[Rfam]
RNA sequence: GAAUUUCGCCAGGACCAUCCUCCUCCCAGGUCCUGUCGGAUAAGGCCGGCAUUCACCUCCUCCCGGAUGCCGGCCGCCAAAACGACACCCGCCGGACCUCCUCCCCCGGCGGGUGUUGUUU
Numbered sequence: 001g002a003a004u005u006u007c008g009c010c011a012g013g014a015c016c017a018u019c020c021u022c023c024u025c026c027c028a029g030g031u032c033c034u035g036u037c038g039g040a041u042a043a044g045g046c047c048g049g050c051a052u053u054c055a056c057c058u059c060c061u062c063c064c065g066g067a068u069g070c071c072g073g074c075c076g077c078c079a080a081a082a083c084g085a086c087a088c089c090c091g092c093c094g095g096a097c098c099u100c101c102u103c104c105c106c107c108g109g110c111g112g113g114u115g116u117u118g119u120u121u
Stems, first nucleotide, its partner, number of pairs: 006039003010035007044075010085116011
Alphaproteobacterial ar14: a 121-nucleotide sequence from Nitratireductor sp. StC3. Rfam links the family to the GO term biological process involved in symbiotic interaction. Smr14C2 was renamed NfeR1 (Nodule Formation Efficiency RNA) highly expressed in salt stress and during the symbiotic interaction on legume roots. The family's RNA type in Rfam is small RNA.